[Rfam]
RNA sequence: AUGUACCACGCGUCCACUGCGGUUCUGAGCACGCCGUCCGCGCCCGCCUUGCGGCUCGCUACGUUUUGUUAGCU
Numbered sequence: 001a002u003g004u005a006c007c008a009c010g011c012g013u014c015c016a017c018u019g020c021g022g023u024u025c026u027g028a029g030c031a032c033g034c035c036g037u038c039c040g041c042g043c044c045c046g047c048c049u050u051g052c053g054g055c056u057c058g059c060u061a062c063g064u065u066u067u068g069u070u071a072g073c074u
Base pairs, nucleotide, nucleotide: 002016003015005013006012020036021035022034023033048072049071051069052068053067054066